[Rfam]
RNA sequence: AAAUAAAUUUGUUAGGUGAGGCUCCUAUAAAGAUAUAUGCCGCUACCCAGAAAAAUCGAGAGAUUCCAACGGGUUAACAGAAAUUAUCGCAAAGGUAAUUUUUAAUGUGGCUGACUAGAAAGUCAAAGCUCUAUAGUGCUAAAGCUCUACAACUAAGUAAUUAU
Number, nucleotide and partner (000 for none) at each position: 001a000002a000003a000004u000005a000006a000007a158008u157009u156010u155011g150012u149013u093014a000015g146016g145017u144018g000019a000020g140021g139022c138023u000024c000025c136026u135027a134028u133029a132030a000031a130032g129033a000034u000035a000036u000037a000038u000039g111040c110041c109042g108043c107044u000045a074046c073047c072048c071049a000050g000051a000052a000053a000054a065055a064056u063057c062058g000059a000060g000061a000062g057063a056064u055065u054066c000067c000068a000069a000070c000071g048072g047073g046074u045075u000076a000077a000078c000079a000080g102081a101082a100083a099084u000085u000086a096087u095088c094089g000090c000091a000092a000093a013094g088095g087096u086097a000098a000099u083100u082101u081102u080103u000104a000105a000106u000107g043108u042109g041110g040111c039112u000113g124114a123115c122116u000117a000118g000119a000120a000121a000122g115123u114124c113125a000126a000127a000128g000129c032130u031131c000132u029133a028134u027135a026136g025137u000138g022139c021140u020141a000142a000143a000144g017145c016146u015147c000148u000149a012150c011151a000152a000153c000154u000155a010156a009157g008158u007159a000160a000161u000162u000163a000164u000
A member of the RNA family "M-box riboswitch aptamer (ykoK leader)" from Clostridium butyricum, 164 nucleotides long. About the family: M-box riboswitch, also know as ykoK leader is described as a metaloregulatory RNA that sense divalent metals and function as a genetic control element of genes related to divalent metal transport in bacteria. It was first reported upstream of the B.subtilis ykoK gene and genes with related functions in other bacteria. Rfam links the family to the GO terms regulation of gene expression and response to magnesium ion.